[Rfam]
RNA sequence: CUAGAGGAUAUCUUACUAUUAUUACAACCCAAUGUAGUAUGAAUACUCGUGUAUGGCGUAGCUUUCCUUAAUUAGGAGCAGUGAUAACAUCAUGUAGGCGCAGAGACGUAGGAGACUUUAG
Dot-bracket structure: ((((((....((((((......((((......))))((((((....)))))).............(((.....))).....(((.....)))...............))))))..))))))
Shown here is a 121-nucleotide RNA, a member of the family "RAGATH-7-assoc RNA". By type it is a small RNA.